A member of the RNA family "Eukaryotic large subunit ribosomal RNA" from Angomonas deanei, 376 nucleotides of a longer RNA.

RNA sequence: UGUUUUUCUUGCAAAAACAACCACACCGGUGCGGAAGAGUAGCGCGCGGCGCUCGUCCGAGCAGUUCGUUUCACCCUGACCUCUUUUUAAUCGAAUCGCCACCUCACUCAACGGAGCUUGCUCCCUCGAAGGCGCCAAGUAUAUUCAUAAUCACAAGACAACUCAAGGGUACCACAAGCGAUCGCUGUUCACACAGGGCGGGCGUCGACUCCCUCCGGGGACGAAAUUCCAAUCCAACCAACCUCUUUACACUACGUCCCUCUCCAAACGAGAGAACAUGCAUGGGCUGGCAUGAGCGGCAAGCUCCACCUCGGUGGGGCUCGAGGGGCAUUUACGUCCCGAGGCGCUGAACCUAGAGGCCUGAAAUUUCAUGCUU
Numbered sequence: 001u002g003u004u005u006u007u008c009u010u011g012c013a014a015a016a017a018c019a020a021c022c023a024c025a026c027c028g029g030u031g032c033g034g035a036a037g038a039g040u041a042g043c044g045c046g047c048g049g050c051g052c053u054c055g056u057c058c059g060a061g062c063a064g065u066u067c068g069u070u071u072c073a074c075c076c077u078g079a080c081c082u083c084u085u086u087u088u089a090a091u092c093g094a095a096u097c098g099c100c101a102c103c104u105c106a107c108u109c110a111a112c113g114g115a116g117c118u119u120g121c122u123c124c125c126u127c128g129a130a131g132g133c134g135c136c137a138a139g140u141a142u143a144u145u146c147a148u149a150a151u152c153a154c155a156a157g158a159c160a161a162c163u164c165a166a167g168g169g170u171a172c173c174a175c176a177a178g179c180g181a182u183c184g185c186u187g188u189u190c191a192c193a194c195a196g197g198g199c200g201g202g203c204g205u206c207g208a209c210u211c212c213c214u215c216c217g218g219g220g221a222c223g224a225a226a227u228u229c230c231a232a233u234c235c236a237a238c239c240a241a242c243c244u245c246u247u248u249a250c251a252c253u254a255c256g257u258c259c260c261u262c263u264c265c266a267a268a269c270g271a272g273a274g275a276a277c278a279u280g281c282a283u284g285g286g287c288u289g290g291c292a293u294g295a296g297c298g299g300c301a302a303g304c305u306c307c308a309c310c311u312c313g314g315u316g317g318g319g320c321u322c323g324a325g326g327g328g329c330a331u332u333u334a335c336g337u338c339c340c341g342a343g344g345c346g347c348u349g350a351a352c353c354u355a356g357a358g359g360c361c362u363g364a365a366a367u368u369u370c371a372u373g374c375u376u
Stems, first nucleotide, its partner, number of pairs: 001274001003272003280374005286300004305365001307363002309359003313353002317347001319345002322343001325340005

NCBI's taxonomy places the organism under Eukaryota, Euglenozoa, Trypanosomatida, Strigomonadinae, Angomonas.
Its Rfam clan is "LSU clan".
Pairs were carried over by alignment from the consensus structure, which is taken from published work.